[Rfam]
RNA: Small nucleolar RNA SNORA48
RNA sequence: UUCCCCGAUAAUGGACAAAGAGACACCUGUAGGUGAUGUUCUUAUAUCAGUCGGGGCAGAGCAGAAGGCAGGCCUUUGUUCAUCCUAGCUUGAUGCCUGGCUUGGGGGCCAAAGCUGUCUUAUGCCAAGGACUCAUAA
Numbered sequence: 001u002u003c004c005c006c007g008a009u010a011a012u013g014g015a016c017a018a019a020g021a022g023a024c025a026c027c028u029g030u031a032g033g034u035g036a037u038g039u040u041c042u043u044a045u046a047u048c049a050g051u052c053g054g055g056g057c058a059g060a061g062c063a064g065a066a067g068g069c070a071g072g073c074c075u076u077u078g079u080u081c082a083u084c085c086u087a088g089c090u091u092g093a094u095g096c097c098u099g100g101c102u103u104g105g106g107g108g109c110c111a112a113a114g115c116u117g118u119c120u121u122a123u124g125c126c127a128a129g130g131a132c133u134c135a136u137a138a
Stems, first nucleotide, its partner, number of pairs: 001058001003056006012049003018043003022037001024035004078132004092126001094124001098122003103117002